[Rfam]
RNA sequence: UGGCCAGGGAUAAAAAUAAUGAUCUGAUUAGUUGAUGUGAUUAUUUGAUGGCUUAAGGGAUUUUCUGAGGCCA
Numbered sequence: 001u002g003g004c005c006a007g008g009g010a011u012a013a014a015a016a017u018a019a020u021g022a023u024c025u026g027a028u029u030a031g032u033u034g035a036u037g038u039g040a041u042u043a044u045u046u047g048a049u050g051g052c053u054u055a056a057g058g059g060a061u062u063u064u065c066u067g068a069g070g071c072c073a
Base pairs, nucleotide, nucleotide: 002072003071004070005069

Shown here is a 73-nucleotide sequence from Crypturellus undulatus, a member of the family "Small nucleolar RNA SNORD93". NCBI's taxonomy places the organism under Eukaryota, Bilateria, Dinosauria, Coelurosauria, Crypturellus. Pairs were carried over by alignment from the consensus structure, which was predicted with RNAalifold. The family's RNA type in Rfam is C/D-box small nucleolar RNA. It scores 60 bits against the family's covariance model.